A member of the RNA family "Purine riboswitch aptamer" from Paenibacillus radicis, 101 nucleotides long. The family's consensus secondary structure is taken from published work. A search with the family's covariance model found it, with a score of 75 bits. Its family is annotated with purine nucleobase biosynthetic process in the Gene Ontology. Lineage of the source: Bacteria > Bacillota > Bacilli > Caryophanales > Paenibacillus. Rfam describes the family as follows. Riboswitches are metabolite binding domains within certain messenger RNAs that serve as precision sensors for their corresponding targets.

[Rfam]
RNA sequence: AUAUAACUUUAUAACUCUUUUCGUAUAAUCUCAAGAAUUGGCUUGAGAGUCUCUACUCGAUCACCGUAAAUGAUCAGGCUACGAAAGGCGAGGGAAAGUCC
Numbered sequence: 001a002u003a004u005a006a007c008u009u010u011a012u013a014a015c016u017c018u019u020u021u022c023g024u025a026u027a028a029u030c031u032c033a034a035g036a037a038u039u040g041g042c043u044u045g046a047g048a049g050u051c052u053c054u055a056c057u058c059g060a061u062c063a064c065c066g067u068a069a070a071u072g073a074u075c076a077g078g079c080u081a082c083g084a085a086a087g088g089c090g091a092g093g094g095a096a097a098g099u100c101c
Base pairs, nucleotide, nucleotide: 018087019086020085021084022083023082024081025080029048030047031046032045033044034043035042057077059075060074061073062072063071